The record is a 234-nucleotide sequence from Roseospira visakhapatnamensis, which matches "permuted transfer-messenger RNA" in Rfam. The base pairs follow the family's consensus structure, which is taken from published work. Lineage of the source: Bacteria > Pseudomonadota > Alphaproteobacteria > Rhodospirillales > Roseospira. Bacterial tmRNA, also known as 10Sa RNA or SsrA, is named for its dual tRNA and mRNA-like properties.
RNA sequence: GACGCUAAACCCUGCCUGGAAUAAGCGUCGUGGACCCGGGGGCAGUACCCGGCGCCUCCACCACUUCGGGCUCCGCCGUCGUCUGGAUCAACGGCGCGCGGGGUCUCACGGGGGCGAACCAGGUUCGACACGCGUGGUAAAGAGACAGGUUGCGUUCGGCAUGGCACCACCGUCAUCGGGCCAUAUGCAAUAGUUGCCAACGACAACUAUGCUCCGGAAGCCGUCGCUGCGUAA
Numbered sequence: 001g002a003c004g005c006u007a008a009a010c011c012c013u014g015c016c017u018g019g020a021a022u023a024a025g026c027g028u029c030g031u032g033g034a035c036c037c038g039g040g041g042g043c044a045g046u047a048c049c050c051g052g053c054g055c056c057u058c059c060a061c062c063a064c065u066u067c068g069g070g071c072u073c074c075g076c077c078g079u080c081g082u083c084u085g086g087a088u089c090a091a092c093g094g095c096g097c098g099c100g101g102g103g104u105c106u107c108a109c110g111g112g113g114g115c116g117a118a119c120c121a122g123g124u125u126c127g128a129c130a131c132g133c134g135u136g137g138u139a140a141a142g143a144g145a146c147a148g149g150u151u152g153c154g155u156u157c158g159g160c161a162u163g164g165c166a167c168c169a170c171c172g173u174c175a176u177c178g179g180g181c182c183a184u185a186u187g188c189a190a191u192a193g194u195u196g197c198c199a200a201c202g203a204c205a206a207c208u209a210u211g212c213u214c215c216g217g218a219a220g221c222c223g224u225c226g227c228u229g230c231g232u233a234a
Base pairs, nucleotide, nucleotide: 001156002155003154004153005152014146016144017143026134027133028132030131031130032129036052037051038050039049040048053116054115055114056113057112058111059110157172158171159170